Source information:
Rfam assigns this 125-nucleotide RNA sequence to the family "c-di-GMP-II-GAG riboswitch aptamer". Its Rfam clan is "c-di-GMP_II riboswitch clan".
[Rfam]
RNA sequence: UGACACCACGGACGCAUCGAUCCUCGGGUAGAGGUUCCAGACGGUCGCCCAUCGGGUUGGGGCUGUUCCAGCGCCAACCGCCGGUGACCCGGGGGGAGCGAAUGGCGAGACCGGCCGUGAGAUGA
Number, nucleotide and partner (000 for none) at each position: 001u125002g000003a123004c000005a000006c000007c119008a118009c117010g116011g115012a000013c100014g099015c098016a000017u000018c000019g000020a000021u000022c094023c093024u092025c091026g090027g089028g088029u087030a000031g000032a000033g000034g000035u000036u000037c000038c000039a000040g000041a000042c000043g112044g111045u108046c107047g106048c105049c104050c000051a000052u000053c000054g000055g000056g000057u000058u000059g000060g000061g000062g000063c000064u000065g000066u000067u000068c000069c000070a000071g000072c000073g000074c000075c000076a000077a000078c000079c000080g000081c000082c000083g000084g000085u000086g000087a029088c028089c027090c026091g025092g024093g023094g022095g000096g000097a000098g015099c014100g013101a000102a000103u000104g049105g048106c047107g046108a045109g000110a000111c044112c043113g000114g000115c011116c010117g009118u008119g007120a000121g000122a000123u003124g000125a001